[Rfam]
mir-15 microRNA precursor family: an 85-nucleotide sequence from Crocuta crocuta.
The family's consensus secondary structure was predicted with RNAalifold.
The family has 164 seed sequences and 2,045 matches in Rfam 15.1.
Taxonomically the source falls in Crocuta (Eukaryota, Eumetazoa, Chordata, Vertebrata).
Rfam links the family to the GO terms miRNA-mediated post-transcriptional gene silencing and RISC complex.
On this family, see Lagos-Quintana et al., Science 2001: "Identification of novel genes coding for small expressed RNAs".
Rfam's curators write: This family represents the related mir-15a and mir-15b sequences.
Nucleotides: 085
Base pairs, nucleotide, nucleotide: 001085002084003083005081006080015071016070017069018068019067020066021065022064023063026059027058028057029056030055031054032053033052034051035050
Number, partner (000 for none) and nucleotide at each position: 001085g002084c003083c004000c005081c006080c007000c008000u009000g010000g011000c012000u013000c014000u015071a016070g017069c018068a019067g020066c021065a022064c023063a024000g025000a026059a027058a028057u029056a030055u031054u032053g033052g034051c035050a036000c037000u038000g039000g040000g041000a042000a043000g044000a045000g046000a047000g048000u049000c050035u051034g052033c053032c054031a055030a056029u057028a058027u059026u060000g061000g062000c063023u064022g065021u066020g067019c068018u069017g070016c071015u072000c073000u074000a075000g076000g077000c078000a079000g080006g081005g082000u083003g084002g085001c